[Rfam]
RNA sequence: UGGGUAGUAUCUAUUAUCAGAACUAUACCAGUAGAUCAUAAGCAUAAAAUGGAAUAGGUUCUGCCUUGAUCCGAAAAGGACGGGGACAGAGGG
Numbered sequence: 001u002g003g004g005u006a007g008u009a010u011c012u013a014u015u016a017u018c019a020g021a022a023c024u025a026u027a028c029c030a031g032u033a034g035a036u037c038a039u040a041a042g043c044a045u046a047a048a049a050u051g052g053a054a055u056a057g058g059u060u061c062u063g064c065c066u067u068g069a070u071c072c073g074a075a076a077a078g079g080a081c082g083g084g085g086a087c088a089g090a091g092g093g
Base pairs, nucleotide, nucleotide: 001030002029003028004026005025006024007023008022010021011020061089062088063087064085065084066083067082068081070080071079072078